[Rfam]
RNA sequence: GGGAGUGGAUGGGGCCCGGUGGCCUCUGCCGUCUUCAAAACGGUCGUCCUGUCGCAAGCGCGGCGGGAGGUGGGUUCGACUCCCAUGCACUCCC
Numbered sequence: 001g002g003g004a005g006u007g008g009a010u011g012g013g014g015c016c017c018g019g020u021g022g023c024c025u026c027u028g029c030c031g032u033c034u035u036c037a038a039a040a041c042g043g044u045c046g047u048c049c050u051g052u053c054g055c056a057a058g059c060g061c062g063g064c065g066g067g068a069g070g071u072g073g074g075u076u077c078g079a080c081u082c083c084c085a086u087g088c089a090c091u092c093c094c
Stems, first nucleotide, its partner, number of pairs: 001094007009086001011026006028044005047068007071085004
Background:
Shown here is a 94-nucleotide RNA sequence from bacterium SCGC AG-212-C10, a member of the family "Selenocysteine transfer RNA". A search with the family's covariance model found it, with a score of 71 bits.